[Rfam]
RNA: THF-II riboswitch (folE RNA)
RNA sequence: CCGUUCAACUCGUUCCCUCUAUGAAGGGAACUACGGGAG
Numbered sequence: 001c002c003g004u005u006c007a008a009c010u011c012g013u014u015c016c017c018u019c020u021a022u023g024a025a026g027g028g029a030a031c032u033a034c035g036g037g038a039g
Stems, first nucleotide, its partner, number of pairs: 001036004012031007